[Rfam]
RNA sequence: AAGCAACACUGUGUGGCUGAUGAACAAAACCGUCUGACACAAUUUGAGCUUUCUAUAGCAAGAAAGUCUAACCUAUUCCAGUGUUCUCAUCCCCAUGAGACAUCCCAUUAUAAUAGGCUCAAACAAU
Number, nucleotide and partner (000 for none) at each position: 001a000002a000003g000004c000005a000006a000007c000008a000009c048010u047011g000012u041013g040014u039015g038016g000017c036018u000019g034020a033021u032022g031023a000024a000025c000026a000027a000028a000029a000030c000031c022032g021033u020034c019035u000036g017037a000038c015039a014040c013041a012042a000043u000044u000045u000046g000047a010048g009049c000050u000051u000052u000053c000054u000055a000056u000057a000058g000059c000060a000061a000062g000063a000064a000065a119066g118067u117068c116069u115070a114071a000072c000073c000074u112075a111076u110077u000078c000079c000080a000081g105082u000083g000084u000085u000086c000087u100088c099089a000090u097091c000092c000093c000094c000095a000096u000097g090098a000099g088100a087101c000102a000103u000104c000105c081106c000107a000108u000109u000110a076111u075112a074113a000114u070115a069116g068117g067118c066119u065120c000121a000122a000123a000124c000125a000126a000127u000
The record is a 127-nucleotide RNA from Nannospalax galili, which matches "Small nucleolar RNA SNORA28" in Rfam. Clan: SNORA28 clan. On this family, see Huttenhofer et al., EMBO J 2001: "RNomics: an experimental approach that identifies 201 candidates for novel, small, non-messenger RNAs in mouse". Rfam's curators write: ACA28 is a member of the H/ACA class of snoRNA that guide the sites of modification of uridines to pseudouridines. The base pairs follow the family's consensus structure, which was predicted with RNAfold. Rfam links the family to the GO terms nucleolus and RNA processing. The match comes from Rfam's covariance-model search (103 bits).